RNA: c-di-GMP-I riboswitch aptamer
Organism: Clostridium sp. CAG:43
RNA sequence: ACAUAUAUUUGGCAAAACAGUUGAAAAGCUGCGACGCAAAGCUAUAGGGCCUGUAAAAUGGCAGCCAGUUGCAUUA
Numbered sequence: 001a002c003a004u005a006u007a008u009u010u011g012g013c014a015a016a017a018c019a020g021u022u023g024a025a026a027a028g029c030u031g032c033g034a035c036g037c038a039a040a041g042c043u044a045u046a047g048g049g050c051c052u053g054u055a056a057a058a059u060g061g062c063a064g065c066c067a068g069u070u071g072c073a074u075u076a
Base pairs, nucleotide, nucleotide: 012037013036018031019030020029021028022027040070041069042068043067047066048065049062050061051060
Dot-bracket structure: ...........((....(((((....)))))....))..((((...(((((........)))..))))))......